Annotation: c-di-GMP-II-GAG riboswitch aptamer: a 92-nucleotide RNA sequence. It is one of the family's seed sequences. Gene Ontology terms of the family: cyclic-di-GMP binding and regulation of gene expression.
RNA sequence: GCAGCACACAGCGACGAAGAUCCGGGCUGGAUUCUAGAGCACGGUCGCCCCAGCGCGGCCCGGGAAGUCAGUGGCAAGACCGCCUGAGCAGC
Numbered sequence: 001g002c003a004g005c006a007c008a009c010a011g012c013g014a015c016g017a018a019g020a021u022c023c024g025g026g027c028u029g030g031a032u033u034c035u036a037g038a039g040c041a042c043g044g045u046c047g048c049c050c051c052a053g054c055g056c057g058g059c060c061c062g063g064g065a066a067g068u069c070a071g072u073g074g075c076a077a078g079a080c081c082g083c084c085u086g087a088g089c090a091g092c
Stems, first nucleotide, its partner, number of pairs: 004092002007088001009086003013069003022063008043081002045077001047075003